[Rfam]
RNA sequence: UGGCGCCCAACGUGGGGCCUGGAAAUGAGGGACUCCGUGAGGAAGAGGACGCCAAAGGACGGUCGACCGCCACCGAAGACAAAGGAGUCAAACUCUUCCGAUCACCAUGGGAACCUGCCGUCAGGAUCGGUGUAAGUGACGCUGUCCUAAAUGGGACAAGAAUUAAGCCAACAUCAAAUAUAUGUAGGACAAUUAAAAGAGGCUUUAAAGAUACGAGGAGUAAAGGUUAAAGGUAAUGAUUUGUUUAAAUUUUUUGAUUUUGUAAAAGGCACUUGCCCUU
Numbered sequence: 001u002g003g004c005g006c007c008c009a010a011c012g013u014g015g016g017g018c019c020u021g022g023a024a025a026u027g028a029g030g031g032a033c034u035c036c037g038u039g040a041g042g043a044a045g046a047g048g049a050c051g052c053c054a055a056a057g058g059a060c061g062g063u064c065g066a067c068c069g070c071c072a073c074c075g076a077a078g079a080c081a082a083a084g085g086a087g088u089c090a091a092a093c094u095c096u097u098c099c100g101a102u103c104a105c106c107a108u109g110g111g112a113a114c115c116u117g118c119c120g121u122c123a124g125g126a127u128c129g130g131u132g133u134a135a136g137u138g139a140c141g142c143u144g145u146c147c148u149a150a151a152u153g154g155g156a157c158a159a160g161a162a163u164u165a166a167g168c169c170a171a172c173a174u175c176a177a178a179u180a181u182a183u184g185u186a187g188g189a190c191a192a193u194u195a196a197a198a199g200a201g202g203c204u205u206u207a208a209a210g211a212u213a214c215g216a217g218g219a220g221u222a223a224a225g226g227u228u229a230a231a232g233g234u235a236a237u238g239a240u241u242u243g244u245u246u247a248a249a250u251u252u253u254u255u256g257a258u259u260u261u262g263u264a265a266a267a268g269g270c271a272c273u274u275g276c277c278c279u280u
Stems, first nucleotide, its partner, number of pairs: 006031003012026002036048001038046001092133002095130002101127003107121004141157001145155003164207003167203003214256008224242006265280002268277003